[Rfam]
TUC338: a 180-nucleotide RNA from Campylorhamphus procurvoides.

RNA sequence: UUGACAGCCCUGGAGACUGAAUCCCUGUGUUUAUCCACAGAGCAGACAGAGCGCGGGCAGUGGCAGUGGCAGCUUCGGCCACGCUGCCCCCUCCCUGUGCCUGGGCGCUGACUCGGAGGAAGCACCUCUAAAGGUGAGCGGGGCCCUUCAGUCUCCACGCCCACUCAAUCCUCCUCCCGC
Number, nucleotide and partner (000 for none) at each position: 001u000002u167003g166004a165005c000006a000007g161008c000009c000010c000011u157012g156013g155014a154015g153016a152017c151018u150019g149020a148021a147022u000023c000024c143025c142026u141027g000028u000029g000030u138031u137032u136033a135034u134035c133036c000037a000038c110039a109040g108041a000042g106043c000044a000045g000046a000047c000048a102049g000050a000051g100052c099053g098054c097055g096056g095057g000058c000059a000060g000061u000062g088063g087064c086065a085066g084067u000068g000069g000070c000071a000072g000073c000074u000075u000076c000077g000078g000079c000080c000081a000082c000083g000084c066085u065086g064087c063088c062089c000090c000091c000092u000093c000094c000095c056096u055097g054098u053099g052100c051101c000102u048103g000104g000105g000106c042107g000108c040109u039110g038111a000112c000113u131114c000115g129116g128117a127118g126119g125120a000121a000122g000123c000124a000125c119126c118127u117128c116129u115130a000131a113132a000133g035134g034135u033136g032137a031138g030139c000140g000141g026142g025143g024144c000145c000146c000147u021148u020149c019150a018151g017152u016153c015154u014155c013156c012157a011158c000159g000160c000161c007162c000163a000164c000165u004166c003167a002168a000169u000170c000171c000172u000173c000174c000175u000176c000177c000178c000179g000180c000

The family's consensus secondary structure was predicted with WAR. By type it is a cis-regulatory element. Taxonomically the source falls in Campylorhamphus (Eukaryota, Chordata, Sauria, Archosauria). The literature on the family includes a 2011 paper in Proc Natl Acad Sci U S A by Braconi et al., "Expression and functional role of a transcribed noncoding RNA with an ultraconserved element in hepatocellular carcinoma".